[Rfam]
RNA sequence: AAUUAGCCCUGAUUGAAAUGGAAAUCUCCCGAUUUUUUAUCGGGAAUUGCAAUGGAAAGCAGGAAUACGG
Number, nucleotide and partner (000 for none) at each position: 001a000002a000003u000004u000005a000006g000007c000008c000009c062010u061011g060012a000013u058014u057015g000016a000017a000018a053019u052020g000021g000022a000023a048024a047025u046026c000027u000028c044029c043030c042031g041032a040033u039034u000035u000036u000037u000038u000039a033040u032041c031042g030043g029044g028045a000046a025047u024048u023049g000050c000051a000052a019053u018054g000055g000056a000057a014058a013059g000060c011061a010062g009063g000064a000065a000066u000067a000068c000069g000070g000